[Rfam]
RNA: Fluoride riboswitch aptamer (crcB RNA motif)
Organism: Dictyobacter aurantiacus
RNA sequence: CAGCCAACUGGUGAUGGAGCUCACCCGGUCAACUUCUGUAGCACGUUGACCAAACCGCAUAGAAGCUAAUGGCUCCUGAUGACGC
Number, nucleotide and partner (000 for none) at each position: 001c000002a000003g000004c000005c000006a000007a000008c000009u000010g025011g024012u023013g022014a000015u000016g076017g075018a074019g073020c072021u071022c013023a012024c011025c010026c000027g000028g000029u000030c000031a000032a000033c000034u000035u000036c000037u000038g000039u000040a000041g000042c000043a000044c000045g000046u000047u000048g000049a000050c000051c000052a000053a000054a000055c000056c000057g066058c065059a000060u000061a000062g000063a000064a000065g058066c057067u000068a000069a000070u000071g021072g020073c019074u018075c017076c016077u000078g000079a000080u000081g000082a000083c000084g000085c000